[Rfam]
RNA sequence: AGUUAAUUUAAAGCGCCAGGACUUGAGUGAAAGAAUAGACCUUAGGAUAAGUUUAGUUUUUACCAACCAAAUCUGCUUUUGUUGUAGAUUAUGAGGAGGGAAUUUAACAAAAACUUUAUGAGGUUAUAGGAAAUUUCCUUUUAAAGGAAACUCAGCCUUUACGGCUGAGUAAGUUCCACCGACCAAAUCGUAGAUUUGGGGUGUCACUUAAGUUGACGAGGAUGGGGAGUAUCGAAUCUUCGGCGGGUGCCCCACGGUAACGCACUACCGUUAACGGUUAAUAAAAUCAGAAAGUGAUUUCUGACACAAUAUUAAUCUGGUGUUAAAA
Numbered sequence: 001a002g003u004u005a006a007u008u009u010a011a012a013g014c015g016c017c018a019g020g021a022c023u024u025g026a027g028u029g030a031a032a033g034a035a036u037a038g039a040c041c042u043u044a045g046g047a048u049a050a051g052u053u054u055a056g057u058u059u060u061u062a063c064c065a066a067c068c069a070a071a072u073c074u075g076c077u078u079u080u081g082u083u084g085u086a087g088a089u090u091a092u093g094a095g096g097a098g099g100g101a102a103u104u105u106a107a108c109a110a111a112a113a114c115u116u117u118a119u120g121a122g123g124u125u126a127u128a129g130g131a132a133a134u135u136u137c138c139u140u141u142u143a144a145a146g147g148a149a150a151c152u153c154a155g156c157c158u159u160u161a162c163g164g165c166u167g168a169g170u171a172a173g174u175u176c177c178a179c180c181g182a183c184c185a186a187a188u189c190g191u192a193g194a195u196u197u198g199g200g201g202u203g204u205c206a207c208u209u210a211a212g213u214u215g216a217c218g219a220g221g222a223u224g225g226g227g228a229g230u231a232u233c234g235a236a237u238c239u240u241c242g243g244c245g246g247g248u249g250c251c252c253c254a255c256g257g258u259a260a261c262g263c264a265c266u267a268c269c270g271u272u273a274a275c276g277g278u279u280a281a282u283a284a285a286a287u288c289a290g291a292a293a294g295u296g297a298u299u300u301c302u303g304a305c306a307c308a309a310u311a312u313u314a315a316u317c318u319g320g321u322g323u324u325a326a327a328a
Stems, first nucleotide, its partner, number of pairs: 020214008029205001223254005232243004255270005276317005287304007
Dot-bracket structure: ...................((((((((.(...............................................................................................................................................................................).))))))))........(((((....((((....))))......)))))(((((......))))).....(((((......(((((((....)))))))........)))))...........
RNA: glmS glucosamine-6-phosphate activated ribozyme aptamer
Organism: Clostridium carboxidivorans